Nucleotides: 133
Stems, first nucleotide, its partner, number of pairs: 002060005007054001009052001013048001015047004020042001023038004071125007084114005090108002093105001
Number, partner (000 for none) and nucleotide at each position: 001000a002060c003059c004058g005057a006056g007054a008000c009052u010000a011000g012000u013048g014000u015047c016046a017045c018044g019000u020042c021000u022000a023038g024037a025036c026035a027000u028000u029000g030000c031000c032000c033000a034000u035026u036025g037024u038023c039000a040000u041000a042020g043000u044018u045017g046016u047015g048013c049000u050000u051000g052009a053000a054007u055000a056006c057005u058004c059003g060002g061000a062000a063000a064000g065000u066000a067000a068000c069000a070000a071125c072124u073123a074122a075121u076120c077119u078000c079000u080000g081000u082000u083000u084114a085113c086112u087111g088110a089000c090108u091107g092000u093105c094000a095000a096000u097000a098000c099000u100000u101000u102000c103000a104000g105093g106000u107091c108090g109000g110088u111087c112086a113085g114084u115000c116000a117000c118000u119077g120076g121075g122074u123073u124072a125071g126000u127000a128000a129000c130000a131000g132000a133000a
A member of the RNA family "Small nucleolar RNA SNORA3/SNORA45 family" from Gopherus agassizii, 133 nucleotides long. The family's consensus secondary structure was predicted with RNAalifold. Rfam links the family to the GO terms nucleolus and RNA processing. From the family's description: The members of this family belong to the H/ACA class of snoRNAs which are thought to guide the sites of modification of uridines to pseudouridines. Clan: SNORA3 clan.